RNA sequence: CUUUGUAUUCUUCCACAGCUUUCUUGAACUGCAACUUCGUCUUAAAUUGUUUACUCUCUUGUUGAUGUUUAAUCUUGCAUGUGAGAGUUUUAAUAAUAGGGAUAUUGUUUGCGGUUCAAUAAAGCUGUGGGAAGAUACGAACA
Numbered sequence: 001c002u003u004u005g006u007a008u009u010c011u012u013c014c015a016c017a018g019c020u021u022u023c024u025u026g027a028a029c030u031g032c033a034a035c036u037u038c039g040u041c042u043u044a045a046a047u048u049g050u051u052u053a054c055u056c057u058c059u060u061g062u063u064g065a066u067g068u069u070u071a072a073u074c075u076u077g078c079a080u081g082u083g084a085g086a087g088u089u090u091u092a093a094u095a096a097u098a099g100g101g102a103u104a105u106u107g108u109u110u111g112c113g114g115u116u117c118a119a120u121a122a123a124g125c126u127g128u129g130g131g132a133a134g135a136u137a138c139g140a141a142c143a
Stems, first nucleotide, its partner, number of pairs: 003140005013130003017126006024119004029114005
The family of this 143-nucleotide RNA sequence from Corchorus olitorius is "MIR396 microRNA precursor family". The literature on the family includes a 2005 paper in Plant Cell by Sunkar et al., "Cloning and characterization of microRNAs from rice". The source organism's lineage runs through Eukaryota, eudicotyledons, Gunneridae, rosids and Corchorus.